A member of the RNA family "MIR5272 microRNA precursor family" from Medicago truncatula, 74 nucleotides long. The family's consensus secondary structure was predicted with RNAalifold. Its family is annotated with miRNA-mediated post-transcriptional gene silencing and RISC complex in the Gene Ontology.
RNA sequence: UUGAAUGCGAAUUGAUUUAUGUUUGGAUACAUUGACUUAGAAUUGAUUCUUAAAAAUUAAUGUUGGUUGGAUAG
Numbered sequence: 001u002u003g004a005a006u007g008c009g010a011a012u013u014g015a016u017u018u019a020u021g022u023u024u025g026g027a028u029a030c031a032u033u034g035a036c037u038u039a040g041a042a043u044u045g046a047u048u049c050u051u052a053a054a055a056a057u058u059a060a061u062g063u064u065g066g067u068u069g070g071a072u073a074g
Base pairs, nucleotide, nucleotide: 011061012060013059014058015057016056017055018054022052025049026048027047028046030045031044033042

The organism belongs to Medicago, within Eukaryota.